[Rfam]
RNA sequence: GUGUGCUCAGGGCAAACCAGUGGAAACGCUGGGACGCAAAGCCACGGGUCUACGGACGUCCGUCUAUGACCGCCGGGUUGCCACA
Numbered sequence: 001g002u003g004u005g006c007u008c009a010g011g012g013c014a015a016a017c018c019a020g021u022g023g024a025a026a027c028g029c030u031g032g033g034a035c036g037c038a039a040a041g042c043c044a045c046g047g048g049u050c051u052a053c054g055g056a057c058g059u060c061c062g063u064c065u066a067u068g069a070c071c072g073c074c075g076g077g078u079u080g081c082c083a084c085a
Stems, first nucleotide, its partner, number of pairs: 012037002017032006040079004045075003048070003055064003